A member of the RNA family "S10-Clostridia ribosomal protein leader", 106 nucleotides long. Rfam's curators put it in the seed alignment. Rfam classes the family as a cis-regulatory leader.
RNA sequence: UGAUAGCUAAGAAGCGGAGGUUGCCGAGAAAACUGUGAAUUCAGGUUUUUGGGUUUUUCGUGGAGCGAAUGUCAAGAGACCGAAAGGUCUGUAAACCUGGCGACAA
Numbered sequence: 001u002g003a004u005a006g007c008u009a010a011g012a013a014g015c016g017g018a019g020g021u022u023g024c025c026g027a028g029a030a031a032a033c034u035g036u037g038a039a040u041u042c043a044g045g046u047u048u049u050u051g052g053g054u055u056u057u058u059c060g061u062g063g064a065g066c067g068a069a070u071g072u073c074a075a076g077a078g079a080c081c082g083a084a085a086g087g088u089c090u091g092u093a094a095a096c097c098u099g100g101c102g103a104c105a106a
Stems, first nucleotide, its partner, number of pairs: 014061007024052007070105004078089004